[Rfam]
Record summary
This 109-nucleotide RNA sequence from Dankookia rubra belongs to the Rfam family "TPP riboswitch aptamer (THI element)". Pairs were carried over by alignment from the consensus structure, which is taken from published work. The source organism's lineage runs through Bacteria, Pseudomonadota, Alphaproteobacteria, Acetobacterales and Dankookia.
RNA sequence: UGAUGUUCCAAGGGGGGUCCCGCAUGGGGCUGAGAUACGGCAGAGGCGCCGUGACCCUUUGAACCUGAUCCGGGUCAUGCCGGCGUAGGGAGAGGAACGAACGGGCGCC
Numbered sequence: 001u002g003a004u005g006u007u008c009c010a011a012g013g014g015g016g017g018u019c020c021c022g023c024a025u026g027g028g029g030c031u032g033a034g035a036u037a038c039g040g041c042a043g044a045g046g047c048g049c050c051g052u053g054a055c056c057c058u059u060u061g062a063a064c065c066u067g068a069u070c071c072g073g074g075u076c077a078u079g080c081c082g083g084c085g086u087a088g089g090g091a092g093a094g095g096a097a098c099g100a101a102c103g104g105g106c107g108c109c
Base pairs, nucleotide, nucleotide: 006097007096008095009094011058012057013056014055017030018029019028020027021026037052038051039050040049041048064089065088066087067086070083071082072081073080